[Rfam]
RNA sequence: UGCACUGUUUUUAACUUGUGGACAAAGACUUAUGAAUAAGUGCAAAAAAUAAAUCCUCUUUUGCAACCCCGAACUCAUUGUUCAGUAUGAGUUUUGAUACACAUAAGAAGGGAUAUU
Number, nucleotide and partner (000 for none) at each position: 001u036002g000003c034004a000005c000006u000007g029008u028009u027010u026011u025012u024013a000014a000015c020016u000017u000018g000019u000020g015021g000022a000023c000024a012025a011026a010027g009028a008029c007030u000031u000032a000033u000034g003035a000036a001037u000038a000039a000040g000041u000042g000043c000044a000045a000046a000047a000048a000049a000050u000051a000052a000053a114054u113055c112056c111057u110058c000059u108060u107061u106062u105063g104064c000065a000066a000067c000068c000069c096070c000071g094072a093073a092074c091075u090076c089077a088078u087079u000080g000081u000082u000083c000084a000085g000086u000087a078088u077089g076090a075091g074092u073093u072094u071095u000096g069097a000098u000099a000100c000101a000102c000103a000104u063105a062106a061107g060108a059109a000110g057111g056112g055113a054114u053115a000116u000117u000

Shown here is a 117-nucleotide RNA from Piliocolobus tephrosceles, a member of the family "Small nucleolar RNA SNORA40". A search with the family's covariance model found it, with a score of 104 bits. Rfam 15.1 lists 2,550 matches to the family in 517 species. For this family Rfam cites "Mapping to nucleotide resolution of pseudouridine residues in large subunit ribosomal RNAs from representative eukaryotes, prokaryotes, archaebacteria, mitochondria and chloroplasts" (Ofengand and Bakin, J Mol Biol, 1997).